[Rfam]
The family of this 284-nucleotide RNA sequence from Nannospalax galili is "Mason-Pfizer monkey virus packaging signal". The family has 9 seed sequences and 2,921 matches in Rfam 15.1. The family's consensus secondary structure was predicted with PFOLD. Rfam classes the family as a cis-regulatory element. Taxonomically the source falls in Nannospalax (Eukaryota, Chordata, Theria, Euarchontoglires). It scores 114 bits against the family's covariance model. Rfam describes the family as follows. This family represents a group of sequences that are related to the Mason-Pfizer monkey virus (MPMV) packaging signal.
RNA sequence: UGGCGCCCAACAUGGGGCCUGGAUACUGGGGGUAAAAGUGAAGGAGGUGAUGUAGAAGAAGGGGUGCGCACCCGAUAUAUCUCAAGUAGCCGGAAACACUGUGGGAGCCUGCUGCGGCUGAAACCGAAGGUUAGUUAGGUCGUCUAUUUAAAUCAUGGGGCAAGCAUUAAGUCCACAUCAGAUUUAUGUUAUACAGUUAAGGGAAGCUCUCAAGGCAAGAGGUGUAAAGGUAACUACUGAAGAUUUAUUUCAUUUCUUUGAUUUUGUAAAGGAACUUUGUCCUU
Numbered sequence: 001u002g003g004c005g006c007c008c009a010a011c012a013u014g015g016g017g018c019c020u021g022g023a024u025a026c027u028g029g030g031g032g033u034a035a036a037a038g039u040g041a042a043g044g045a046g047g048u049g050a051u052g053u054a055g056a057a058g059a060a061g062g063g064g065u066g067c068g069c070a071c072c073c074g075a076u077a078u079a080u081c082u083c084a085a086g087u088a089g090c091c092g093g094a095a096a097c098a099c100u101g102u103g104g105g106a107g108c109c110u111g112c113u114g115c116g117g118c119u120g121a122a123a124c125c126g127a128a129g130g131u132u133a134g135u136u137a138g139g140u141c142g143u144c145u146a147u148u149u150a151a152a153u154c155a156u157g158g159g160g161c162a163a164g165c166a167u168u169a170a171g172u173c174c175a176c177a178u179c180a181g182a183u184u185u186a187u188g189u190u191a192u193a194c195a196g197u198u199a200a201g202g203g204a205a206g207c208u209c210u211c212a213a214g215g216c217a218a219g220a221g222g223u224g225u226a227a228a229g230g231u232a233a234c235u236a237c238u239g240a241a242g243a244u245u246u247a248u249u250u251c252a253u254u255u256c257u258u259u260g261a262u263u264u265u266g267u268a269a270a271g272g273a274a275c276u277u278u279g280u281c282c283u284u
Stems, first nucleotide, its partner, number of pairs: 006031003013025002038048002087133002090130002097120002100116005140163001142161002147159004169210001171207002219259004224254001228246004269284005